RNA sequence: GCAAGGCGCGGCCGGAGAGAGCGAGUUCGUCUCGCCGCCGAAGGCGCAACCGCCCGGAAACGCUCAGGCAAAUGAACGGCGCGCCCUUG
Numbered sequence: 001g002c003a004a005g006g007c008g009c010g011g012c013c014g015g016a017g018a019g020a021g022c023g024a025g026u027u028c029g030u031c032u033c034g035c036c037g038c039c040g041a042a043g044g045c046g047c048a049a050c051c052g053c054c055c056g057g058a059a060a061c062g063c064u065c066a067g068g069c070a071a072a073u074g075a076a077c078g079g080c081g082c083g084c085c086c087u088u089g
Stems, first nucleotide, its partner, number of pairs: 006084005012079003021035004037069003040065002044063003050057002

Rfam assigns this 89-nucleotide sequence from Povalibacter uvarum to the family "Glycine riboswitch aptamer". This family represents the bacterial glycine riboswitch. The source organism's lineage runs through Bacteria, Pseudomonadati, Pseudomonadota, Gammaproteobacteria and Povalibacter.